[Rfam]
RNA sequence: UCUUCAUAAUGUGGGUCAUAGCAGAAACAUUCAUAUCGUGACCUUUGUCAGGUAAUCCCUGGGAAUACCUGUGAAUUCUGCU
Numbered sequence: 001u002c003u004u005c006a007u008a009a010u011g012u013g014g015g016u017c018a019u020a021g022c023a024g025a026a027a028c029a030u031u032c033a034u035a036u037c038g039u040g041a042c043c044u045u046u047g048u049c050a051g052g053u054a055a056u057c058c059c060u061g062g063g064a065a066u067a068c069c070u071g072u073g074a075a076u077u078c079u080g081c082u
Stems, first nucleotide, its partner, number of pairs: 013044005020082007027039002049071006

Annotation
Mammalian CPEB3 ribozyme: an 82-nucleotide RNA from Crocodylus porosus. A search with the family's covariance model found it, with a score of 49 bits. The source organism's lineage runs through Eukaryota, Craniata, Teleostomi, Crocodylidae and Crocodylus. Rfam describes the family as follows. The mammalian CPEB3 ribozyme is a self cleaving RNA located in the second intron of the CPEB3 gene which belongs to a family of genes regulating messenger RNA polyadenylation.